[Rfam]
RNA sequence: GCGUCUUGCCCUUCCUGGGCGUUUCCUCCCUAUAGACUUUAAAUGCCGCACCUUCGGGUGCGGCUUUUUUUUGAUCUGA
Numbered sequence: 001g002c003g004u005c006u007u008g009c010c011c012u013u014c015c016u017g018g019g020c021g022u023u024u025c026c027u028c029c030c031u032a033u034a035g036a037c038u039u040u041a042a043a044u045g046c047c048g049c050a051c052c053u054u055c056g057g058g059u060g061c062g063g064c065u066u067u068u069u070u071u072u073g074a075u076c077u078g079a
Stems, first nucleotide, its partner, number of pairs: 008020004045064008
Shown here is a 79-nucleotide RNA from Brevundimonas sp. SH203, a member of the family "Makes More Granules Regulator RNA (mmgR)". The organism belongs to Brevundimonas, within Bacteria. A search with the family's covariance model found it, with a score of 63 bits. The family's RNA type in Rfam is small RNA. Rfam links the family to the GO terms DNA-templated transcription, termination, response to nitrogen compound and protein binding.